[Rfam]
Shown here is a 172-nucleotide RNA sequence from Geodermatophilus sp. DF01-2, a member of the family "Group II catalytic intron D1-D4-3". The source organism's lineage runs through Bacteria, Bacillati, Actinomycetes, Geodermatophilales and Geodermatophilus. Group II introns are found in rRNA, tRNA and mRNA of organelles in fungi, plants and protists, and also in mRNA in bacteria. The literature on the family includes a 2001 paper in Trends Genet by Bonen and Vogel, "The ins and outs of group II introns".

RNA sequence: GUCAUCGUGAGGUGGGGUCGGGAGGAAGCCCGAGGCGAGACCUCUGCACCGAGGAACACGAAUCGCGUAUGAGGCGGUCCGGUCUGGGUGAGCCAGCACGCCAUGGUGAAGCCCGUCAUCGCCAAUGGGGCCGGGGCGUAGACGCGGCGGCGGUAGAGGGACGUUGAUCGUU
Numbered sequence: 001g002u003c004a005u006c007g008u009g010a011g012g013u014g015g016g017g018u019c020g021g022g023a024g025g026a027a028g029c030c031c032g033a034g035g036c037g038a039g040a041c042c043u044c045u046g047c048a049c050c051g052a053g054g055a056a057c058a059c060g061a062a063u064c065g066c067g068u069a070u071g072a073g074g075c076g077g078u079c080c081g082g083u084c085u086g087g088g089u090g091a092g093c094c095a096g097c098a099c100g101c102c103a104u105g106g107u108g109a110a111g112c113c114c115g116u117c118a119u120c121g122c123c124a125a126u127g128g129g130g131c132c133g134g135g136g137c138g139u140a141g142a143c144g145c146g147g148c149g150g151c152g153g154u155a156g157a158g159g160g161a162c163g164u165u166g167a168u169c170g171u172u
Stems, first nucleotide, its partner, number of pairs: 002015005028172001030170001032168001035165001041159006047152001049150003063147006074139003078135007086114004092107004